[Rfam]
RNA sequence: AAUUCCUUUAAAGAUAGUCCCGUGAGGCUAAAAAGGUGUGAAUUAGUCCUGUGAUACAUGCGUGUAUCCACAGAUCUAAUUAUUUCGGUGUAUUGCGAUACAUCAAUCUUCUGUCUACAAUCUGACAUUCACUCCUGCCUUUGCGAGAAGGUAGGAGUUUUUUUA
Dot-bracket structure: ..(.(((((.....(((((......))))).))))).)....((((..(((((...............)))))..))))...................................................((((((((((((....)))))))))))).......
Numbered sequence: 001a002a003u004u005c006c007u008u009u010a011a012a013g014a015u016a017g018u019c020c021c022g023u024g025a026g027g028c029u030a031a032a033a034a035g036g037u038g039u040g041a042a043u044u045a046g047u048c049c050u051g052u053g054a055u056a057c058a059u060g061c062g063u064g065u066a067u068c069c070a071c072a073g074a075u076c077u078a079a080u081u082a083u084u085u086c087g088g089u090g091u092a093u094u095g096c097g098a099u100a101c102a103u104c105a106a107u108c109u110u111c112u113g114u115c116u117a118c119a120a121u122c123u124g125a126c127a128u129u130c131a132c133u134c135c136u137g138c139c140u141u142u143g144c145g146a147g148a149a150g151g152u153a154g155g156a157g158u159u160u161u162u163u164u165a
Stems, first nucleotide, its partner, number of pairs: 003038001005036005015030005043079004049073005131158012